Background
Shown here is an 84-nucleotide sequence from Patiria miniata, a member of the family "Small nucleolar RNA SNORD79". Clan: SNORD74 clan. The match comes from Rfam's covariance-model search (47 bits).

[Rfam]
RNA sequence: GUCUGAAGAUGAUGACAUAAGAACAUGUGGGAAUCUCUCUGAAUAACCAUGAGGAGCUUUUUGACAUGACACACUGAUUCAGAC
Dot-bracket structure: (((((((......................................................................)))))))

It is annotated as a C/D-box small nucleolar RNA.
A reference for the family is Galardi et al. (2002), "Purified box C/D snoRNPs are able to reproduce site-specific 2'-O-methylation of target RNA in vitro", Mol Cell Biol.
snoRNA U79 or Z22 is found in intron 7 of the gas5 gene in humans and is also present in mice.
Lineage of the source: Eukaryota > Eumetazoa > Asteroidea > Valvatida > Patiria.